[Rfam]
RNA sequence: AGCAGUUCUCGGGGCGGGGUGAAAUUCCCCACCGGCGGUAUCAGGGAAACCUGGAGCCCGCGAGCGCCAGAAACCUUUCGGGGGGCAUGGGUCAGCAGAUCCGGUGAGAGGCCGGAGCCGACGGUUGAGGUGCAAUCCUUCACGAAGGAGGGCGCCCGAAAGUCCGGAUGAGAGAGAACUUGG
Numbered sequence: 001a002g003c004a005g006u007u008c009u010c011g012g013g014g015c016g017g018g019g020u021g022a023a024a025u026u027c028c029c030c031a032c033c034g035g036c037g038g039u040a041u042c043a044g045g046g047a048a049a050c051c052u053g054g055a056g057c058c059c060g061c062g063a064g065c066g067c068c069a070g071a072a073a074c075c076u077u078u079c080g081g082g083g084g085g086c087a088u089g090g091g092u093c094a095g096c097a098g099a100u101c102c103g104g105u106g107a108g109a110g111g112c113c114g115g116a117g118c119c120g121a122c123g124g125u126u127g128a129g130g131u132g133c134a135a136u137c138c139u140u141c142a143c144g145a146a147g148g149a150g151g152g153c154g155c156c157c158g159a160a161a162g163u164c165c166g167g168a169u170g171a172g173a174g175a176g177a178a179c180u181u182g183g
Stems, first nucleotide, its partner, number of pairs: 004180007017029003033120002035061004056118002064096002100116005122166003
RNA: FMN riboswitch aptamer (RFN element)
Organism: Labrenzia sp. 011